Description
RAGATH-18 RNA: an 86-nucleotide RNA sequence. From the family's description: Actinobacteria, Firmicutes, Fusobacteria, Thermotogae (1 example).
RNA sequence: CCUUUGGAGAGUACAAGGAACUAUGAGUAGAUAACUUAGUUGUUAUAACUUAGUUGUUAUUGAAAAUAUACUCAUUGAAUAAGGAA
Numbered sequence: 001c002c003u004u005u006g007g008a009g010a011g012u013a014c015a016a017g018g019a020a021c022u023a024u025g026a027g028u029a030g031a032u033a034a035c036u037u038a039g040u041u042g043u044u045a046u047a048a049c050u051u052a053g054u055u056g057u058u059a060u061u062g063a064a065a066a067u068a069u070a071c072u073c074a075u076u077g078a079a080u081a082a083g084g085a086a
Stems, first nucleotide, its partner, number of pairs: 001084004009073005022068003030061003033055004